[Rfam]
RNA: 2dG-II purine riboswitch aptamer
RNA sequence: UUUAUGUGUAAUCUCCAAAAUAUGGUUGGGGAGCCUCCACCAGUGAACCGUAAAAUCGCUGUCACCACGUUCA
Numbered sequence: 001u002u003u004a005u006g007u008g009u010a011a012u013c014u015c016c017a018a019a020a021u022a023u024g025g026u027u028g029g030g031g032a033g034c035c036u037c038c039a040c041c042a043g044u045g046a047a048c049c050g051u052a053a054a055a056u057c058g059c060u061g062u063c064a065c066c067a068c069g070u071u072c073a
Stems, first nucleotide, its partner, number of pairs: 001073001004070005012032007042060005